This 74-nucleotide RNA from Homo sapiens belongs to the Rfam family "mir-4435 microRNA precursor family". The organism belongs to Homo, within Eukaryota. Rfam links the family to the GO terms RISC complex and miRNA-mediated post-transcriptional gene silencing. The sequence is in the family's curated seed alignment.
[Rfam]
RNA sequence: GCAAAUGGCCAGAGCUCACACAGAGGGAUGAGUGCACUUCACCUGCAGUGUGACUCAGCAGGCCAACAGAUGCU
Numbered sequence: 001g002c003a004a005a006u007g008g009c010c011a012g013a014g015c016u017c018a019c020a021c022a023g024a025g026g027g028a029u030g031a032g033u034g035c036a037c038u039u040c041a042c043c044u045g046c047a048g049u050g051u052g053a054c055u056c057a058g059c060a061g062g063c064c065a066a067c068a069g070a071u072g073c074u
Base pairs, nucleotide, nucleotide: 001073002072003071006065007064008063009062010061012056013055014054016053017052018051019050020049021048025044026043027042029041030040031039032038